[Rfam]
RNA sequence: UAAUUUAUUUGGGAUAUAUCAUUAUUUAGGUAUGAAAGAUCCACACCUGACUUUUCAAAAUCACCUGUUACCACAAGUUCAACUAUGCCAUUGACUUUUAAAAGCUAAGAACAACUACCAUGUGAACAAUAAUUUUAUGAGAU
Numbered sequence: 001u002a003a004u005u006u007a008u009u010u011g012g013g014a015u016a017u018a019u020c021a022u023u024a025u026u027u028a029g030g031u032a033u034g035a036a037a038g039a040u041c042c043a044c045a046c047c048u049g050a051c052u053u054u055u056c057a058a059a060a061u062c063a064c065c066u067g068u069u070a071c072c073a074c075a076a077g078u079u080c081a082a083c084u085a086u087g088c089c090a091u092u093g094a095c096u097u098u099u100a101a102a103a104g105c106u107a108a109g110a111a112c113a114a115c116u117a118c119c120a121u122g123u124g125a126a127c128a129a130u131a132a133u134u135u136u137a138u139g140a141g142a143u
Stems, first nucleotide, its partner, number of pairs: 004141004014130002019125001023122003027117003031113001
Record summary: This 143-nucleotide sequence from Salix dunnii belongs to the Rfam family "MIR480 microRNA precursor family". On this family, see Lu et al., Plant Cell 2005: "Novel and mechanical stress-responsive MicroRNAs in Populus trichocarpa that are absent from Arabidopsis". A search with the family's covariance model found it, with a score of 96 bits. Pairs were carried over by alignment from the consensus structure, which was predicted with WAR. Taxonomically the source falls in Salix (Eukaryota, Embryophyta, Pentapetalae, fabids).